[Rfam]
This 142-nucleotide sequence from Solanum tuberosum belongs to the Rfam family "MIR7993 microRNA precursor family". The organism belongs to Solanum, within Eukaryota.
RNA sequence: UUAAGUUAACCACAUAAAAUAUGUCAUCUCCUUUAACUAUACGCAUCCGCCUCAAAUAAGUCGUAAAACUCUAGACGUUUUCUAUUUGAGGUUGAUGCGUAUAAUUAAAAGAGAUGUCAUAUUUUAUAUGGUUAAUUUAAUC
Numbered sequence: 001u002u003a004a005g006u007u008a009a010c011c012a013c014a015u016a017a018a019a020u021a022u023g024u025c026a027u028c029u030c031c032u033u034u035a036a037c038u039a040u041a042c043g044c045a046u047c048c049g050c051c052u053c054a055a056a057u058a059a060g061u062c063g064u065a066a067a068a069c070u071c072u073a074g075a076c077g078u079u080u081u082c083u084a085u086u087u088g089a090g091g092u093u094g095a096u097g098c099g100u101a102u103a104a105u106u107a108a109a110a111g112a113g114a115u116g117u118c119a120u121a122u123u124u125u126a127u128a129u130g131g132u133u134a135a136u137u138u139a140a141u142c
Stems, first nucleotide, its partner, number of pairs: 001140012014127010025116001028113003032109005038103010049092006